A member of the RNA family "U8 small nucleolar RNA" from Moschus moschiferus, 127 nucleotides long. A reference for the family is Hokii et al. (2010), "A small nucleolar RNA functions in rRNA processing in Caenorhabditis elegans", Nucleic Acids Res. The family has 55 seed sequences and 1,597 matches in Rfam 15.1. The match comes from Rfam's covariance-model search (68 bits).

[Rfam]
RNA sequence: UCAUCCAGUAGGCUAAUCCUUACCUCCCCUUUUGGAGGGCAGAAUAGUAUGUGGUCAUUGGAGCUCGCAUGAUUCAUGAUUAUGGCUCUGUCUGAUCACGACUUGCAAGAGCCUGAUUGCUCCUGAU
Dot-bracket structure: .......................(((.((....)).)...))............................((.((((....)))).))....((((((.(...........).))))))........
Numbered sequence: 001u002c003a004u005c006c007a008g009u010a011g012g013c014u015a016a017u018c019c020u021u022a023c024c025u026c027c028c029c030u031u032u033u034g035g036a037g038g039g040c041a042g043a044a045u046a047g048u049a050u051g052u053g054g055u056c057a058u059u060g061g062a063g064c065u066c067g068c069a070u071g072a073u074u075c076a077u078g079a080u081u082a083u084g085g086c087u088c089u090g091u092c093u094g095a096u097c098a099c100g101a102c103u104u105g106c107a108a109g110a111g112c113c114u115g116a117u118u119g120c121u122c123c124u125g126a127u
Stems, first nucleotide, its partner, number of pairs: 024042002026037001028035002071088002074085004093119006100112001